[Rfam]
RNA sequence: AGUAAAGGAGCACUGACUAAGAACGCCACGUCCUGUGGCAACGUCUGUGUGACCUGCAUCGUGCAGG
Numbered sequence: 001a002g003u004a005a006a007g008g009a010g011c012a013c014u015g016a017c018u019a020a021g022a023a024c025g026c027c028a029c030g031u032c033c034u035g036u037g038g039c040a041a042c043g044u045c046u047g048u049g050u051g052a053c054c055u056g057c058a059u060c061g062u063g064c065a066g067g
Stems, first nucleotide, its partner, number of pairs: 011049003015045003025039005053067005
A member of the RNA family "Bacillaceae-1 RNA" from Lederbergia lenta, 67 nucleotides long. The family's RNA type in Rfam is small RNA.